[Rfam]
RNA sequence: AAGGAGUAAUGCUGAAAAUCCUUAUAAAAGAGUAAGCA
Numbered sequence: 001a002a003g004g005a006g007u008a009a010u011g012c013u014g015a016a017a018a019u020c021c022u023u024a025u026a027a028a029a030g031a032g033u034a035a036g037c038a
Stems, first nucleotide, its partner, number of pairs: 002022004011037003